A member of the RNA family "S15-Halobacteria ribosomal protein leader" from Halomicrobium mukohataei, 67 nucleotides long. Pairs were carried over by alignment from the consensus structure, which is taken from published work. A reference for the family is Eckert and Weinberg (2020), "Discovery of 20 novel ribosomal leader candidates in bacteria and archaea", BMC Microbiol.

[Rfam]
RNA sequence: UCGGGAACAGCACGACCGCAAAUCUGACCCGCCACGCGGUUGCGUGGCUUCGAGAUUGCGGCCGUGU
Numbered sequence: 001u002c003g004g005g006a007a008c009a010g011c012a013c014g015a016c017c018g019c020a021a022a023u024c025u026g027a028c029c030c031g032c033c034a035c036g037c038g039g040u041u042g043c044g045u046g047g048c049u050u051c052g053a054g055a056u057u058g059c060g061g062c063c064g065u066g067u
Stems, first nucleotide, its partner, number of pairs: 010067004016061006024054002031048007